The family of this 167-nucleotide sequence from Salisediminibacterium beveridgei is "M-box riboswitch aptamer (ykoK leader)". Rfam describes the family as follows. M-box riboswitch, also know as ykoK leader is described as a metaloregulatory RNA that sense divalent metals and function as a genetic control element of genes related to divalent metal transport in bacteria. It was first reported upstream of the B.subtilis ykoK gene and genes with related functions in other bacteria. NCBI's taxonomy places the organism under Bacteria, Bacillati, Bacillota, Bacillaceae, Salisediminibacterium. It scores 141 bits against the family's covariance model. The family has 159 seed sequences and 1,095 matches in Rfam 15.1.
[Rfam]
RNA sequence: AUACGCCCUCGUUAGGUGAGGCUCCUGUGCAGGAGAUACGCUGCUGCCCAAAAACGUCCAAAGACGCCAAUGGGUUGAACAGGAACGGUCGACAUAAGGCCGUUUUUAAUGCAGCUGGCAAUCGUCCUAUGCCGCACAGUGCUAAAGCUCUACGAAUGGAGGUCACA
Numbered sequence: 001a002u003a004c005g006c007c008c009u010c011g012u013u014a015g016g017u018g019a020g021g022c023u024c025c026u027g028u029g030c031a032g033g034a035g036a037u038a039c040g041c042u043g044c045u046g047c048c049c050a051a052a053a054a055c056g057u058c059c060a061a062a063g064a065c066g067c068c069a070a071u072g073g074g075u076u077g078a079a080c081a082g083g084a085a086c087g088g089u090c091g092a093c094a095u096a097a098g099g100c101c102g103u104u105u106u107u108a109a110u111g112c113a114g115c116u117g118g119c120a121a122u123c124g125u126c127c128u129a130u131g132c133c134g135c136a137c138a139g140u141g142c143u144a145a146a147g148c149u150c151u152a153c154g155a156a157u158g159g160a161g162g163u164c165a166c167a
Stems, first nucleotide, its partner, number of pairs: 005163003009159002011153002013097001015149003020143003025139006032133002040115005046075005055066004082106004088100003117127002